[Rfam]
RNA sequence: UGGGGCAUAGCCAAGCGGUAAGGCAUCAGACUUUGACUCUGACAUUUCCCUGGUUCGAAUCCAGGUGCCCCAG
Number, nucleotide and partner (000 for none) at each position: 001u072002g071003g070004g069005g068006c067007a066008u000009a000010g024011c023012c022013a000014a000015g000016c000017g000018g000019u000020a000021a000022g012023g011024c010025a000026u042027c041028a040029g039030a038031c000032u000033u000034u000035g000036a000037c000038u030039c029040u028041g027042a026043c000044a000045u000046u000047u000048c000049c065050c064051u063052g062053g061054u000055u000056c000057g000058a000059a000060u000061c053062c052063a051064g050065g049066u007067g006068c005069c004070c003071c002072a001073g000
RNA: tRNA